[Rfam]
Rfam assigns this 135-nucleotide sequence from Monodelphis domestica to the family "Small nucleolar RNA SNORA70". From the family's description: snoRNA U70 seems to be exclusive to mammals and is a member of the H/ACA class of snoRNA which contain H (ANANNA) and ACA box motifs. Rfam's curators put it in the seed alignment. Gene Ontology terms of the family: RNA processing and nucleolus. For this family Rfam cites "Pseudouridine in RNA: what, where, how, and why" (Charette and Gray, IUBMB Life, 2000). By type it is an H/ACA-box small nucleolar RNA.
RNA sequence: CUGCAGCCAAUUAAGCCGACCAACCCUACAGCGCCAGUGUGGGCUUGGUGUGCAAUGGUUGCAGACAUGAAUUCCCUGGUUGUGUGCGUACCUUGUUUUCCAUGCAAGGUAUUCUAAGGGACCUCGGAAACACUU
Numbered sequence: 001c002u003g004c005a006g007c008c009a010a011u012u013a014a015g016c017c018g019a020c021c022a023a024c025c026c027u028a029c030a031g032c033g034c035c036a037g038u039g040u041g042g043g044c045u046u047g048g049u050g051u052g053c054a055a056u057g058g059u060u061g062c063a064g065a066c067a068u069g070a071a072u073u074c075c076c077u078g079g080u081u082g083u084g085u086g087c088g089u090a091c092c093u094u095g096u097u098u099u100c101c102a103u104g105c106a107a108g109g110u111a112u113u114c115u116a117a118g119g120g121a122c123c124u125c126g127g128a129a130a131c132a133c134u135u
Stems, first nucleotide, its partner, number of pairs: 002054004019049004025043004078123003089111006